[Rfam]
RNA sequence: GGUUGGUCUGAGUGCAGUGGUGCUUACAACUAAUUGGUCACAACCAAUUACAGAUUUAUUUGUUCAUUUUCCAGUCCUACUGCUUCAGUUGACUGGCCAAAA
Numbered sequence: 001g002g003u004u005g006g007u008c009u010g011a012g013u014g015c016a017g018u019g020g021u022g023c024u025u026a027c028a029a030c031u032a033a034u035u036g037g038u039c040a041c042a043a044c045c046a047a048u049u050a051c052a053g054a055u056u057u058a059u060u061u062g063u064u065c066a067u068u069u070u071c072c073a074g075u076c077c078u079a080c081u082g083c084u085u086c087a088g089u090u091g092a093c094u095g096g097c098c099a100a101a102a
Stems, first nucleotide, its partner, number of pairs: 001098008010090002014086001016081005022076001028064003032060002
A member of the RNA family "Y RNA" from Rhinopithecus roxellana, 102 nucleotides long. The family's consensus secondary structure is taken from published work. NCBI's taxonomy places the organism under Eukaryota, Chordata, Craniata, Cercopithecidae, Rhinopithecus. It is annotated as a non-coding RNA gene. Y RNAs are components of the Ro ribonucleoprotein particle (Ro RNP), in association with Ro60 and La proteins. The Y RNAs and Ro60 and La proteins are well conserved, but the function of the Ro RNP is not known. In humans the RNA component can be one of four small RNAs -- hY1, hY3, hY4 and hY5. These small RNAs are predicted to fold into a conserved secondary structure containing three stem structures. The largest of the four, hY1, contains an additional hairpin. This family includes a significant number of annotated pseudogenes and the model is expected to discriminate poorly between real and Y RNA related pseudogenes.